Description:
The family of this 141-nucleotide sequence from Solanum lycopersicum is "small nucleolar RNA snoR137".
[Rfam]
RNA sequence: GUUGCUUCUUACUUGUGAGCACCUCUUGUUUUAUGUGGGGAUGUUCCUGUUUCGGAAGCAUAUAUUAAUUCUUUUACCAGUUAUAAACAGCGUGAUGAAUAUUUCAUUUCUGCAUCACGCUACCUGUCUUCUGGUACAAAC
Dot-bracket structure: ..((((((........((((.((((...........))))..))))........))))))...............(((((........(((.(((((...............))))).))).........)))))......
Overview
A search with the family's covariance model found it, with a score of 87 bits. A reference for the family is Chen and Wu (2009), "Mining small RNA sequencing data: a new approach to identify small nucleolar RNAs in Arabidopsis", Nucleic Acids Res.